RNA: Ribosomal protein L13 leader
Organism: Floricoccus tropicus
RNA sequence: GGUAUUGUUUACCACCAUUUUUUGGCCCCGGAAACCAGAAAAUAACGAAUGCAAGGAACGGCAUUCACAAGUAAACAAAGA
Number, nucleotide and partner (000 for none) at each position: 001g000002g000003u000004a000005u000006u077007g076008u075009u074010u073011a072012c071013c000014a000015c000016c000017a043018u042019u041020u040021u039022u038023u037024g036025g035026c000027c000028c000029c000030g000031g000032a000033a000034a000035c025036c024037a023038g022039a021040a020041a019042a018043u017044a000045a000046c000047g000048a000049a000050u000051g000052c000053a000054a000055g000056g000057a000058a000059c000060g000061g000062c000063a000064u000065u000066c000067a000068c000069a000070a000071g012072u011073a010074a009075a008076c007077a006078a000079a000080g000081a000